A member of the RNA family "Small nucleolar RNA SNORD79" from Muraenolepis orangiensis, 80 nucleotides long.
The organism belongs to Muraenolepis, within Eukaryota.
The family is grouped with related families in Rfam's "SNORD74 clan".
Rfam links the family to the GO terms RNA processing and nucleolus.
Pairs were carried over by alignment from the consensus structure, which was predicted with PFOLD.
Rfam describes the family as follows. snoRNA U79 or Z22 is found in intron 7 of the gas5 gene in humans and is also present in mice.
[Rfam]
RNA sequence: AACUGCAUGUGAUGUUGUUUGAAAAAACAUUGGGAAACUUUCUGAAUAACAAUGAAAGAUGGCUUUUUACUGAUGCAAUG
Numbered sequence: 001a002a003c004u005g006c007a008u009g010u011g012a013u014g015u016u017g018u019u020u021g022a023a024a025a026a027a028c029a030u031u032g033g034g035a036a037a038c039u040u041u042c043u044g045a046a047u048a049a050c051a052a053u054g055a056a057a058g059a060u061g062g063c064u065u066u067u068u069a070c071u072g073a074u075g076c077a078a079u080g
Base pairs, nucleotide, nucleotide: 002079004077005076006075007074
Dot-bracket structure: .(.((((..................................................................)))).).